[Rfam]
A member of the RNA family "Small nucleolar RNA Z112" from Triticum urartu, 181 nucleotides long. The match comes from Rfam's covariance-model search (183 bits).

RNA sequence: AUCCCUGUGAAGAUUCUCAGACCAUAGGAAGUGCCGUAUGACACUGUAAACAACAGCUGCUUCUCUCCACUGCAAAUGUCCUCCUUCGAGCAUAGCCUUUGUGGUUUGGUCUGGGCUGGAAUCUCCAUUUGCAGCUGGUUUGGUUCAGCUGUGUGUGAUUUUAAACGGGUCUCAGAGGGAU
Numbered sequence: 001a002u003c004c005c006u007g008u009g010a011a012g013a014u015u016c017u018c019a020g021a022c023c024a025u026a027g028g029a030a031g032u033g034c035c036g037u038a039u040g041a042c043a044c045u046g047u048a049a050a051c052a053a054c055a056g057c058u059g060c061u062u063c064u065c066u067c068c069a070c071u072g073c074a075a076a077u078g079u080c081c082u083c084c085u086u087c088g089a090g091c092a093u094a095g096c097c098u099u100u101g102u103g104g105u106u107u108g109g110u111c112u113g114g115g116c117u118g119g120a121a122u123c124u125c126c127a128u129u130u131g132c133a134g135c136u137g138g139u140u141u142g143g144u145u146c147a148g149c150u151g152u153g154u155g156u157g158a159u160u161u162u163a164a165a166c167g168g169g170u171c172u173c174a175g176a177g178g179g180a181u
Stems, first nucleotide, its partner, number of pairs: 001181005070134009079120003083115002088111002091108002094106004
By type it is a C/D-box small nucleolar RNA.
Gene Ontology terms of the family: nucleolus and RNA processing.
A reference for the family is Liang et al. (2002), "A novel gene organization: intronic snoRNA gene clusters from Oryza sativa", Nucleic Acids Res.
Lineage of the source: Eukaryota > Viridiplantae > Streptophytina > Euphyllophyta > Triticum.